[Rfam]
RNA sequence: AGAUGAAGGUAGCAUGGUUAUGUGCACAGAAAUUGAUUUGGGUCUGCAUGUCUGCCCCUAAUGAUGUCUGAUUUGGGGGCCUGGUUAUGACCUACAUUU
Dot-bracket structure: ...........((((......))))..............(((((.....(((...(.........)...))).....))))).................

A member of the RNA family "Small nucleolar RNA snoR100" from Citrus unshiu, 99 nucleotides long. The base pairs follow the family's consensus structure, which was predicted with WAR. NCBI's taxonomy places the organism under Eukaryota, Streptophyta, Euphyllophyta, Magnoliopsida, Citrus. On this family, see Marker et al., Curr Biol 2002: "Experimental RNomics: identification of 140 candidates for small non-messenger RNAs in the plant Arabidopsis thaliana". Its family is annotated with nucleolus and RNA processing in the Gene Ontology.